[Rfam]
Description: This 152-nucleotide RNA sequence from Rhizobium sp. BK251 belongs to the Rfam family "Rhizobiales sRNA Atu_C7". The organism belongs to Rhizobium, within Bacteria. It is annotated as a small RNA. A reference for the family is Wilms et al. (2012), "Deep sequencing uncovers numerous small RNAs on all four replicons of the plant pathogen Agrobacterium tumefaciens", RNA Biol.
RNA sequence: AACAUUCGAAAGUUAGGUGAUUGUUGAAUUUCAUCGAACUUUCCUUCCUGGGUUCUCCUGGCGCAUUCCGAAGCCGCGGGUGUUUCCUCCCUCUCCCGCAGGUAGUGCGCCCGCCUCGCCUCGCUCAUCGGGUUCGACGAGCGAGGCCAUUU
Numbered sequence: 001a002a003c004a005u006u007c008g009a010a011a012g013u014u015a016g017g018u019g020a021u022u023g024u025u026g027a028a029u030u031u032c033a034u035c036g037a038a039c040u041u042u043c044c045u046u047c048c049u050g051g052g053u054u055c056u057c058c059u060g061g062c063g064c065a066u067u068c069c070g071a072a073g074c075c076g077c078g079g080g081u082g083u084u085u086c087c088u089c090c091c092u093c094u095c096c097c098g099c100a101g102g103u104a105g106u107g108c109g110c111c112c113g114c115c116u117c118g119c120c121u122c123g124c125u126c127a128u129c130g131g132g133u134u135c136g137a138c139g140a141g142c143g144a145g146g147c148c149a150u151u152u
Stems, first nucleotide, its partner, number of pairs: 060111008076099005082093001118147009128137002
Dot-bracket structure: ...........................................................((((((((........(((((.(..........).)))))....))))))))......(((((((((.((......)).))))))))).....